[Rfam]
RNA: freshwater-1 RNA
RNA sequence: UGUGAUGGACCCUGCUCUAUGGUGCACUCAUAACAGGUGAUGGGGAACCAACCAUCAGUAAAA
Numbered sequence: 001u002g003u004g005a006u007g008g009a010c011c012c013u014g015c016u017c018u019a020u021g022g023u024g025c026a027c028u029c030a031u032a033a034c035a036g037g038u039g040a041u042g043g044g045g046a047a048c049c050a051a052c053c054a055u056c057a058g059u060a061a062a063a
Stems, first nucleotide, its partner, number of pairs: 011037004018032004038057006